[Rfam]
Nucleotides: 098
Stems, first nucleotide, its partner, number of pairs: 004043006021082002026073004034097003
Number, partner (000 for none) and nucleotide at each position: 001000a002000a003000u004043g005042g006041u007040c008039a009038a010000a011000g012000g013000u014000c015000g016000a017000g018000u019000a020000u021082c022081c023000u024000a025000a026073c027072g028071g029070g030000c031000u032000u033000u034097u035096c036095g037000a038009u039008u040007g041006a042005c043004c044000c045000a046000a047000a048000a049000c050000u051000a052000u053000a054000g055000g056000a057000g058000a059000u060000g061000u062000g063000u064000u065000a066000g067000u068000g069000g070029c071028c072027c073026g074000u075000a076000u077000c078000g079000c080000u081022g082021g083000c084000a085000u086000u087000a088000a089000c090000a091000u092000u093000u094000c095036c096035g097034a098000u
Rfam assigns this 98-nucleotide RNA from Psychrosphaera haliotis to the family "Alpha operon ribosome binding site". About the family: The bacterial alpha operon ribosome binding site is surrounded by this complex pseudoknotted structure. Translation of the mRNA produces 4 ribosomal protein products, one of which (S4) acts as a translational repressor by binding to the nested pseudoknot region. The mechanism of repression is thought to involve a conformational switch in the pseudoknot region and ribosome entrapment. Rfam classes the family as a cis-regulatory element. The organism belongs to Psychrosphaera, within Bacteria. A search with the family's covariance model found it, with a score of 73 bits.